[Rfam]
RNA sequence: AAAAAGGGCGUCUGCCAUGAUUGGCACAGCUGUGUAUGGGUUUUUCUGAUACAGCUGCGGAAUCGCUAUCAAGAGAUUUCGAAUGCACAAUUUUUAAAACUUGGGGGGAAGUCGUGGCCUAAUGGUUAGAGAGUCGGACUCAUAACCCAA
Numbered sequence: 001a002a003a004a005a006g007g008g009c010g011u012c013u014g015c016c017a018u019g020a021u022u023g024g025c026a027c028a029g030c031u032g033u034g035u036a037u038g039g040g041u042u043u044u045u046c047u048g049a050u051a052c053a054g055c056u057g058c059g060g061a062a063u064c065g066c067u068a069u070c071a072a073g074a075g076a077u078u079u080c081g082a083a084u085g086c087a088c089a090a091u092u093u094u095u096a097a098a099a100c101u102u103g104g105g106g107g108g109a110a111g112u113c114g115u116g117g118c119c120u121a122a123u124g125g126u127u128a129g130a131g132a133g134u135c136g137g138a139c140u141c142a143u144a145a146c147c148c149a150a
Base pairs, nucleotide, nucleotide: 008086009085010084011083013026014025015024016023017022027057028056029055030054031053032052033051034050035049038046058081059080060079061078062077063076064075104148105147106146108141109140111139112138113137
RNA: U11 spliceosomal RNA
Organism: Sinocyclocheilus anshuiensis